[Rfam]
Notes
Shown here is a 56-nucleotide RNA from Anabas testudineus, a member of the family "Antizyme RNA frameshifting stimulation element". For this family Rfam cites "Identification of a new antizyme mRNA +1 frameshifting stimulatory pseudoknot in a subset of diverse invertebrates and its apparent absence in intermediate species" (Ivanov et al., J Mol Biol, 2004). Gene Ontology term of the family: translational frameshifting. By type it is a frameshift element.
RNA sequence: UGAUGCCCCUCACCACCCCUGAAGUCCCAGGUGGGCGAGGAAGGACCAGCGGGAUC
Numbered sequence: 001u002g003a004u005g006c007c008c009c010u011c012a013c014c015a016c017c018c019c020u021g022a023a024g025u026c027c028c029a030g031g032u033g034g035g036c037g038a039g040g041a042a043g044g045a046c047c048a049g050c051g052g053g054a055u056c
Stems, first nucleotide, its partner, number of pairs: 008040004013035001014033004024056001025054004